A member of the RNA family "c-di-AMP riboswitch aptamer (ydaO/yuaA leader)" from Streptomyces sp. Ru73, 177 nucleotides long. The source organism's lineage runs through Bacteria, Actinomycetes, Kitasatosporales, Streptomycetaceae and Streptomyces. It scores 42 bits against the family's covariance model.
[Rfam]
RNA sequence: UACGCACGACAGCCGGAGCCGGGGACCCACACGCACGACCGGGGUGAAUCGGCCGCCACGGAGCGAUCCGUACGGCCGUAGGGCACCUUCCGUAGCACCAGUGGGCGCGCGCCCCACGCACGCGCCGUCCGCGCCCGAACCCGACAGCUAACCCGGUAGGCGGUCCACGGAAGGAGU
Numbered sequence: 001u002a003c004g005c006a007c008g009a010c011a012g013c014c015g016g017a018g019c020c021g022g023g024g025a026c027c028c029a030c031a032c033g034c035a036c037g038a039c040c041g042g043g044g045u046g047a048a049u050c051g052g053c054c055g056c057c058a059c060g061g062a063g064c065g066a067u068c069c070g071u072a073c074g075g076c077c078g079u080a081g082g083g084c085a086c087c088u089u090c091c092g093u094a095g096c097a098c099c100a101g102u103g104g105g106c107g108c109g110c111g112c113c114c115c116a117c118g119c120a121c122g123c124g125c126c127g128u129c130c131g132c133g134c135c136c137g138a139a140c141c142c143g144a145c146a147g148c149u150a151a152c153c154c155g156g157u158a159g160g161c162g163g164u165c166c167a168c169g170g171a172a173g174g175a176g177u
Stems, first nucleotide, its partner, number of pairs: 005016001018157006028041001042142003050078006081136004